The record is a 151-nucleotide RNA from Ralstonia pickettii, which matches "radC RNA" in Rfam. The family has 148 seed sequences and 500 matches in Rfam 15.1. The family's consensus secondary structure is taken from published work. The family's RNA type in Rfam is cis-regulatory element.
[Rfam]
RNA sequence: ACGCUUCCCGCAUGUUCCGCUGACACCCGUCAGCAGCAUGCCCAGGUAGCCACGAUCUUCAAGGCUACGGCGCGGUUCCGACCGCGUUGAUCACACCAGUUCGCUCCGGCAUCCCAGCGCGAACGGCCAUCGGUUCUCCCGAUGGUGAUGC
Numbered sequence: 001a002c003g004c005u006u007c008c009c010g011c012a013u014g015u016u017c018c019g020c021u022g023a024c025a026c027c028c029g030u031c032a033g034c035a036g037c038a039u040g041c042c043c044a045g046g047u048a049g050c051c052a053c054g055a056u057c058u059u060c061a062a063g064g065c066u067a068c069g070g071c072g073c074g075g076u077u078c079c080g081a082c083c084g085c086g087u088u089g090a091u092c093a094c095a096c097c098a099g100u101u102c103g104c105u106c107c108g109g110c111a112u113c114c115c116a117g118c119g120c121g122a123a124c125g126g127c128c129a130u131c132g133g134u135u136c137u138c139c140c141g142a143u144g145g146u147g148a149u150g151c
Base pairs, nucleotide, nucleotide: 011040012039013038014037016035019034020033021032022031023030024029046068047067048066049065050064051063054092055091056090057089069088070087071086072085073084074083075082119151120150121149126146127145128144129143130142131141132140133139